[Rfam]
RNA: c-di-AMP riboswitch aptamer (ydaO/yuaA leader)
RNA sequence: AGUAUUAAAUUGCUUAAUUUCCCAAAAGGAAAACGGGGGAACCAAGUUGGCAUAAAGCCUAAGGGGUGAAUCGCACAAGUGCGUAGGACAGUCAACAGUCCUAAUCCGUCAGCUAACCUCGUAAGCGCGUGUGACAUAUGUA
Numbered sequence: 001a002g003u004a005u006u007a008a009a010u011u012g013c014u015u016a017a018u019u020u021c022c023c024a025a026a027a028g029g030a031a032a033a034c035g036g037g038g039g040a041a042c043c044a045a046g047u048u049g050g051c052a053u054a055a056a057g058c059c060u061a062a063g064g065g066g067u068g069a070a071u072c073g074c075a076c077a078a079g080u081g082c083g084u085a086g087g088a089c090a091g092u093c094a095a096c097a098g099u100c101c102u103a104a105u106c107c108g109u110c111a112g113c114u115a116a117c118c119u120c121g122u123a124a125g126c127g128c129g130u131g132u133g134a135c136a137u138a139u140g141u142a
Stems, first nucleotide, its partner, number of pairs: 011127004018032005033122006043063001064107003072083004086101004